[Rfam]
RNA sequence: AGCUCAAUGCAAUCAAGUUGGUUUUAUACGCUAUUCUGAUUGGAGUGUUUUUUUAUUAAGACUUAUGAGAGCU
Numbered sequence: 001a002g003c004u005c006a007a008u009g010c011a012a013u014c015a016a017g018u019u020g021g022u023u024u025u026a027u028a029c030g031c032u033a034u035u036c037u038g039a040u041u042g043g044a045g046u047g048u049u050u051u052u053u054u055a056u057u058a059a060g061a062c063u064u065a066u067g068a069g070a071g072c073u
Stems, first nucleotide, its partner, number of pairs: 001073005
RNA: Small nucleolar RNA U54
Organism: Oryza meridionalis